The record is a 134-nucleotide sequence from Bos taurus, which matches "Small nucleolar RNA SNORA31" in Rfam. A reference for the family is Huttenhofer et al. (2001), "RNomics: an experimental approach that identifies 201 candidates for novel, small, non-messenger RNAs in mouse", EMBO J. NCBI's taxonomy places the organism under Eukaryota, Bilateria, Teleostomi, Euteleostomi, Bos. A search with the family's covariance model found it, with a score of 42 bits. The family's consensus secondary structure was predicted with RNAalifold. Rfam describes the family as follows. ACA31 (SNORA31) belongs to the H/ACA class of snoRNAs which are thought to guide the sites of modification of uridines to pseudouridines. ACA31 is predicted to guide the pseudouridylation of U3713 in 28S rRNA and U218 in 18S rRNA. This family includes the mouse homologue snoMBI-161. The family has 5 seed sequences and 2,094 matches in Rfam 15.1.
[Rfam]
RNA sequence: AUGUAUCUAUUUGACAAACGUGGAGCAGUUACUAUAUUCUCCUAAAGUUUCUACUAAUAUACAAGAAAAAAAUUGUCCUUGUACUUUCUGUCUGUCUGAUUGUGGCAGACAAGACUGAAUGGGGAAAGACAGGG
Numbered sequence: 001a002u003g004u005a006u007c008u009a010u011u012u013g014a015c016a017a018a019c020g021u022g023g024a025g026c027a028g029u030u031a032c033u034a035u036a037u038u039c040u041c042c043u044a045a046a047g048u049u050u051c052u053a054c055u056a057a058u059a060u061a062c063a064a065g066a067a068a069a070a071a072a073u074u075g076u077c078c079u080u081g082u083a084c085u086u087u088c089u090g091u092c093u094g095u096c097u098g099a100u101u102g103u104g105g106c107a108g109a110c111a112a113g114a115c116u117g118a119a120u121g122g123g124g125a126a127a128g129a130c131a132g133g134g
Stems, first nucleotide, its partner, number of pairs: 002063005008057001012053002016050004023041003027037001076125005084117001087114003092108005